RNA sequence: AUGUUAUCAAGAAAGGUGGAGGGACUAGACCCUGUGAAACCUUAGCAACCUCCCGCUCCGGCGGAAAGGUGCUACAUUCUACUCAAUCUUUGAGAGAGAUAACGU
Numbered sequence: 001a002u003g004u005u006a007u008c009a010a011g012a013a014a015g016g017u018g019g020a021g022g023g024a025c026u027a028g029a030c031c032c033u034g035u036g037a038a039a040c041c042u043u044a045g046c047a048a049c050c051u052c053c054c055g056c057u058c059c060g061g062c063g064g065a066a067a068g069g070u071g072c073u074a075c076a077u078u079c080u081a082c083u084c085a086a087u088c089u090u091u092g093a094g095a096g097a098g099a100u101a102a103c104g105u
Stems, first nucleotide, its partner, number of pairs: 001105008013043005021032003026081004044073004049069002051065003077097001082094005
RNA: SAM riboswitch aptamer (S box leader)
Organism: Planobacterium oryzisoli